SAM riboswitch aptamer (S box leader): a 133-nucleotide RNA from Aeromicrobium sp. Root495. A search with the family's covariance model found it, with a score of 76 bits. The base pairs follow the family's consensus structure, which is taken from published work. NCBI's taxonomy places the organism under Bacteria, Actinomycetes, Propionibacteriales, Nocardioidaceae, Aeromicrobium.
RNA sequence: UGCUCAUCCAGAGGGGCAGAGGGAACGGCCCUGCGAAGCCCCAGCAACCAGCCCACACCGCCACGCGUACGUGCGUGACCGGCGGGCCAGGUGCUAAAUCCGUCCCGGACAGGUCGUCCGGGAGAGAUGACGA
Numbered sequence: 001u002g003c004u005c006a007u008c009c010a011g012a013g014g015g016g017c018a019g020a021g022g023g024a025a026c027g028g029c030c031c032u033g034c035g036a037a038g039c040c041c042c043a044g045c046a047a048c049c050a051g052c053c054c055a056c057a058c059c060g061c062c063a064c065g066c067g068u069a070c071g072u073g074c075g076u077g078a079c080c081g082g083c084g085g086g087c088c089a090g091g092u093g094c095u096a097a098a099u100c101c102g103u104c105c106c107g108g109a110c111a112g113g114u115c116g117u118c119c120g121g122g123a124g125a126g127a128u129g130a131c132g133a
Stems, first nucleotide, its partner, number of pairs: 001133001004130005013042005021031003025103004043095004048091002051087004099125001104122006
Dot-bracket structure: (..(((((....(((((...(((.[[[[)))......)))))((((.((.((((.............................))))..))))))...(]]]]((((((.......))))))..))))))..)